[Rfam]
Small nucleolar RNA SNORA5: a 134-nucleotide RNA sequence. It is annotated as an H/ACA-box small nucleolar RNA. Rfam describes the family as follows. ACA5 is a member of the H/ACA class of snoRNA that guide the sites of modification of uridines to pseudouridines.
RNA sequence: UGCAGCCGUGUCAAAUUCAGUACCUGUCCUAUGCAUGGUAGGCACUGGCCCAGAAGGCUGCCACAGAAACACUGUGACUCAUGGGCCCUGUUCCUGUGUCCCAGGCUCAGGGAUAAAUUUGGUUACAGACAUCA
Numbered sequence: 001u002g003c004a005g006c007c008g009u010g011u012c013a014a015a016u017u018c019a020g021u022a023c024c025u026g027u028c029c030u031a032u033g034c035a036u037g038g039u040a041g042g043c044a045c046u047g048g049c050c051c052a053g054a055a056g057g058c059u060g061c062c063a064c065a066g067a068a069a070c071a072c073u074g075u076g077a078c079u080c081a082u083g084g085g086c087c088c089u090g091u092u093c094c095u096g097u098g099u100c101c102c103a104g105g106c107u108c109a110g111g112g113a114u115a116a117a118u119u120u121g122g123u124u125a126c127a128g129a130c131a132u133c134a
Base pairs, nucleotide, nucleotide: 002061003060004059005058018047019046020045021044023042024041025040026039027038028037074126075125076124077123078122079121086112087111088110089109090108